[Rfam]
RNA sequence: GUCGAGAGGGCGGAGAAUACAAUACCCUUUGGGGGAAUAAUCCCGGUCUACUUGUGAAGGCUUCUGAACCUCUCGGCACCCUAUU
Numbered sequence: 001g002u003c004g005a006g007a008g009g010g011c012g013g014a015g016a017a018u019a020c021a022a023u024a025c026c027c028u029u030u031g032g033g034g035g036a037a038u039a040a041u042c043c044c045g046g047u048c049u050a051c052u053u054g055u056g057a058a059g060g061c062u063u064c065u066g067a068a069c070c071u072c073u074c075g076g077c078a079c080c081c082u083a084u085u
Stems, first nucleotide, its partner, number of pairs: 001077009013044001015042002025034003045062005
RNA: sRNA-Xcc1